[Rfam]
RNA sequence: UCGGACCGUGCCUGCAGUUGCCUUGUGAUCCACCGACAGUAACGGAUGAAUCACAGUCAACUGUUGGCCUGGUUCUU
Numbered sequence: 001u002c003g004g005a006c007c008g009u010g011c012c013u014g015c016a017g018u019u020g021c022c023u024u025g026u027g028a029u030c031c032a033c034c035g036a037c038a039g040u041a042a043c044g045g046a047u048g049a050a051u052c053a054c055a056g057u058c059a060a061c062u063g064u065u066g067g068c069c070u071g072g073u074u075c076u077u
Stems, first nucleotide, its partner, number of pairs: 003075006011067002014064007022056002025054005031048002033045003
The record is a 77-nucleotide RNA sequence, which matches "mir-250 microRNA precursor family" in Rfam. Rfam links the family to the GO terms miRNA-mediated post-transcriptional gene silencing and RISC complex.